[Rfam]
RNA sequence: UGAGUGGAGCAAAUGAUCGCGUGUACUAUUGCCGAAAGGACGUGCACGAGGAAAGUCCGGGCUUCGCAGGGCAGGAUGCCGGAUAACGUCCGGUGGAGGUGACUCUAAGGAAAGUGCAACAGAAAUUAAACCGCCUUUUAAAGGUAAGGGUGAAAUGGCAGUGUAAGAGACUACCGCUUUGGUGGUAACAUCAAGGGUCAGUGUAAACCCCAUCUGAAGCAAGACUGAAUAGAAAGUUGGUUGCCCGCCUAUAUCUUUCGGGUAGGUCGCUUGACUUUAUUGGUAACAAUAAAGCUAGAUAGAUGAUCAUUCUAGACAUAACCCGGCUUAUCGCUCCACUCAUUAU
Number, nucleotide and partner (000 for none) at each position: 001u342002g341003a340004g339005u338006g337007g336008a335009g334010c333011a331012a311013a310014u309015g308016a307017u306018c305019g000020c048021g047022u046023g045024u044025a043026c042027u000028a000029u000030u000031g000032c000033c000034g000035a000036a000037a000038g000039g000040a000041c000042g026043u025044g024045c023046a022047c021048g020049a000050g000051g000052a000053a329054a328055g327056u000057c326058c325059g324060g323061g322062c219063u218064u217065c216066g000067c000068a000069g246070g245071g244072c243073a000074g215075g214076a213077u212078g211079c093080c092081g091082g090083a089084u000085a000086a000087c000088g000089u083090c082091c081092g080093g079094u108095g106096g105097a104098g103099g000100u000101g000102a000103c098104u097105c096106u095107a000108a094109g210110g209111a000112a000113a000114g208115u207116g204117c203118a202119a000120c000121a000122g000123a000124a000125a000126u000127u000128a000129a000130a000131c149132c148133g145134c144135c143136u142137u141138u000139u000140a000141a137142a136143g135144g134145u133146a000147a000148g132149g131150g000151u000152g000153a000154a000155a000156u000157g175158g174159c000160a172161g171162u170163g000164u000165a000166a000167g000168a000169g000170a162171c161172u160173a000174c158175c157176g199177c196178u195179u194180u193181g192182g191183u190184g189185g000186u000187a000188a000189c184190a183191u182192c181193a180194a179195g178196g177197g000198u000199c176200a000201g000202u118203g117204u116205a000206a000207a115208c114209c110210c109211c078212a077213u076214c075215u074216g065217a064218a063219g062220c000221a000222a000223g268224a267225c266226u265227g000228a000229a000230u000231a000232g259233a258234a257235a256236g255237u251238u000239g249240g248241u247242u000243g072244c071245c070246c069247g241248c240249c239250u000251a237252u000253a000254u000255c236256u235257u234258u233259c232260g000261g000262g000263u000264a000265g226266g225267u224268c223269g000270c000271u000272u000273g000274a000275c294276u293277u292278u291279a290280u289281u288282g287283g000284u000285a000286a000287c282288a281289a280290u279291a278292a277293a276294g275295c000296u000297a000298g000299a000300u000301a000302g000303a000304u000305g018306a017307u016308c015309a014310u013311u012312c000313u000314a000315g000316a000317c000318a000319u000320a000321a000322c061323c060324c059325g058326g057327c055328u054329u053330a000331u011332c000333g010334c009335u008336c007337c006338a005339c004340u003341c002342a001343u000344u000345a000346u000
Rfam assigns this 346-nucleotide RNA sequence from Eubacterium uniforme to the family "Bacterial RNase P class A".
It scores 302 bits against the family's covariance model.
The base pairs follow the family's consensus structure, which is taken from published work.
By type it is a ribozyme.